[Rfam]
JUMPstart RNA: a 38-nucleotide sequence from Aeromonas hydrophila. The base pairs follow the family's consensus structure, which is taken from published work. The match comes from Rfam's covariance-model search (40 bits). Rfam classes the family as a cis-regulatory element. NCBI's taxonomy places the organism under Bacteria, Pseudomonadati, Aeromonadaceae, Aeromonas hydrophila, Aeromonas hydrophila subsp. hydrophila.

RNA sequence: AUGCACACUGGGAGCUGUAACUCAGGGGCGGUAGCUAU
Number, nucleotide and partner (000 for none) at each position: 001a000002u000003g000004c000005a000006c000007a000008c025009u024010g023011g022012g021013a000014g000015c000016u000017g000018u000019a000020a000021c012022u011023c010024a009025g008026g000027g000028g000029c000030g000031g000032u000033a000034g000035c000036u000037a000038u000